A member of the RNA family "SAM riboswitch aptamer (S box leader)" from Fictibacillus aquaticus, 109 nucleotides long. It scores 74 bits against the family's covariance model. Taxonomically the source falls in Fictibacillus (Bacteria, Bacillota, Bacilli, Fictibacillaceae). Rfam links the family to the GO term regulation of gene expression.
RNA sequence: CUCUUAUUCCGAGUAGGUGGAGGGACAGGCCCUAUGAAACCCAGCAACCUGCACUCAUUAGCGAGUGAGAAGGUGCUAACCUGCAAGGUGAAUACCUUGAGAAUAAGAG
Number, nucleotide and partner (000 for none) at each position: 001c109002u108003c107004u106005u105006a104007u103008u102009c000010c000011g000012a000013g042014u000015a000016g041017g040018u039019g000020g000021a000022g032023g031024g030025a000026c083027a082028g081029g080030c024031c023032c022033u000034a000035u000036g000037a000038a000039a018040c017041c016042c013043a077044g076045c075046a074047a000048c073049c072050u069051g000052c067053a066054c065055u064056c000057a000058u000059u000060a000061g000062c000063g000064a055065g054066u053067g052068a000069g050070a000071a000072g049073g048074u046075g045076c044077u043078a000079a000080c029081c028082u027083g026084c099085a098086a097087g096088g095089u094090g000091a000092a000093u000094a089095c088096c087097u086098u085099g084100a000101g000102a008103a007104u006105a005106a004107g003108a002109g001